[Rfam]
RNA: RAGATH-18 RNA
RNA sequence: CCUUUGGAGAGCUACGCCAAACUAGAGUAGGUUUAUGCCAAAAUAGAGUUCGACGAAGAAGGAA
Numbered sequence: 001c002c003u004u005u006g007g008a009g010a011g012c013u014a015c016g017c018c019a020a021a022c023u024a025g026a027g028u029a030g031g032u033u034u035a036u037g038c039c040a041a042a043a044u045a046g047a048g049u050u051c052g053a054c055g056a057a058g059a060a061g062g063a064a
Stems, first nucleotide, its partner, number of pairs: 001062005009051005022046003030039003